[Rfam]
RNA sequence: CCAGUUGGCCGGGCGGCCGCUUCACGUCAAUGCCGAAAGGUGGCGGAAGAGGAAAGUCCGGGCUUCGCGGAGAAACGGUGCCGGGUAACGCCCGGCGAGGGUGACCUCAGGGAAAGUGCCACAGAAAGCAGACCGCCUUGAACCCGCUUGCGGGUUGUAAGGUAAGGGUGAAAGGGUGGGGUAAGAGCCCACCGCGUUUCUGGCAACAGAAAUGGCAAGGUAAACCCCACCGGAAGCAAGACCGAAUAGGAACGGCGUGGCAGCUUGCUGCCGGUCUUCUCCGGAUUAUGCCGUUCGGGUAGGUUGCUAGAGGCGCAGCGUAAGUUGCGUCCCAGAGGAAUGGUCGUCGCAUGGCCCCCGGGCCAUGGCACAGAACCCGGCUUAUAGGCCAACUGGCUCC
Number, nucleotide and partner (000 for none) at each position: 001c396002c395003a394004g393005u392006u391007g390008g389009c388010c387011g385012g348013g347014c346015g345016g344017c343018c342019g000020c049021u048022u047023c046024a000025c045026g044027u043028c042029a041030a000031u000032g000033c000034c000035g000036a000037a000038a000039g000040g000041u029042g028043g027044c026045g025046g023047a022048a021049g020050a000051g000052g000053a000054a383055a382056g381057u000058c380059c379060g378061g377062g376063c236064u235065u234066c233067g000068c000069g000070g000071a000072g281073a280074a000075a000076c232077g231078g230079u229080g228081c095082c094083g093084g092085g091086u000087a000088a000089c000090g000091c085092c084093c083094g082095g081096c110097g108098a107099g106100g105101g000102u000103g000104a000105c100106c099107u098108c097109a000110g096111g227112g226113a000114a000115a000116g225117u224118g221119c220120c219121a000122c000123a000124g000125a000126a000127a000128g000129c000130a000131g000132a000133c167134c166135g163136c162137c161138u160139u159140g158141a000142a156143c000144c000145c000146g000147c000148u000149u000150g000151c000152g000153g000154g000155u000156u142157g000158u140159a139160a138161g137162g136163u135164a000165a000166g134167g133168g000169u000170g000171a000172a000173a000174g000175g193176g192177u191178g190179g189180g188181g000182u000183a000184a000185g000186a000187g000188c180189c179190c178191a177192c176193c175194g216195c214196g213197u212198u211199u210200c209201u208202g207203g000204c000205a000206a000207c202208a201209g200210a199211a198212a197213u196214g195215g000216c194217a000218a000219g120220g119221u118222a000223a000224a117225c116226c112227c111228c080229a079230c078231c077232g076233g066234a065235a064236g063237c000238a000239a000240g305241a304242c303243c302244g000245a000246a000247u000248a000249g000250g296251a295252a294253c293254g292255g291256c000257g000258u000259g000260g000261c000262a000263g000264c000265u000266u000267g000268c000269u000270g000271c000272c000273g287274g286275u285276c284277u283278u000279c000280u073281c072282c000283g277284g276285a275286u274287u273288a000289u000290g000291c255292c254293g253294u252295u251296c250297g000298g000299g000300u000301a000302g243303g242304u241305u240306g000307c000308u000309a000310g000311a000312g331313g330314c329315g328316c327317a326318g325319c324320g000321u000322a000323a000324g319325u318326u317327g316328c315329g314330u313331c312332c000333c000334a000335g000336a000337g000338g000339a000340a000341u000342g018343g017344u016345c015346g014347u013348c012349g000350c000351a000352u000353g000354g000355c000356c000357c000358c000359c000360g000361g000362g000363c000364c000365a000366u000367g000368g000369c000370a000371c000372a000373g000374a000375a000376c062377c061378c060379g059380g058381c056382u055383u054384a000385u011386a000387g010388g009389c008390c007391a006392a005393c004394u003395g002396g001397c000398u000399c000400c000
RNA: Bacterial RNase P class A
Organism: Aureimonas fodinaquatilis